[Rfam]
RNA sequence: UAGGGGGGUCAGGGCCCGGCACCCCUCCCCGAGUCCUGGGUAACUAUUAAUGUGGAGGGGAA
Numbered sequence: 001u002a003g004g005g006g007g008g009u010c011a012g013g014g015c016c017c018g019g020c021a022c023c024c025c026u027c028c029c030c031g032a033g034u035c036c037u038g039g040g041u042a043a044c045u046a047u048u049a050a051u052g053u054g055g056a057g058g059g060g061a062a
Base pairs, nucleotide, nucleotide: 008041009040010039012036013035014034015033016031018029019028022060023059024058025057026056027055
RNA: Gag/pol translational readthrough site
Organism: Ovis aries